[Rfam]
RNA sequence: UCCGGAGCGCGUGCCUGAGGACGAUCUUCGAGAAGGCCACGCCUUUCAGCCGCGCGGUGCGGAUAUAUUGCUGGGUCAUCACCUCGGUCAUCGAGGCACGGGUGAUGCGCGCGACAUAGCCCAUGCCGUAGAGCGCGAUGGUCAGCACCGGCAGGGUGAAGUUGGACAGGGUGAUAUCCUCGAUGGCCGAGC
Numbered sequence: 001u002c003c004g005g006a007g008c009g010c011g012u013g014c015c016u017g018a019g020g021a022c023g024a025u026c027u028u029c030g031a032g033a034a035g036g037c038c039a040c041g042c043c044u045u046u047c048a049g050c051c052g053c054g055c056g057g058u059g060c061g062g063a064u065a066u067a068u069u070g071c072u073g074g075g076u077c078a079u080c081a082c083c084u085c086g087g088u089c090a091u092c093g094a095g096g097c098a099c100g101g102g103u104g105a106u107g108c109g110c111g112c113g114a115c116a117u118a119g120c121c122c123a124u125g126c127c128g129u130a131g132a133g134c135g136c137g138a139u140g141g142u143c144a145g146c147a148c149c150g151g152c153a154g155g156g157u158g159a160a161g162u163u164g165g166a167c168a169g170g171g172u173g174a175u176a177u178c179c180u181c182g183a184u185g186g187c188c189g190a191g192c
Stems, first nucleotide, its partner, number of pairs: 006139001008137005014131001016128002019126001021124001028123001030121001038113001040111003046105003050101003054097001055075001059071004082096005149189004154180003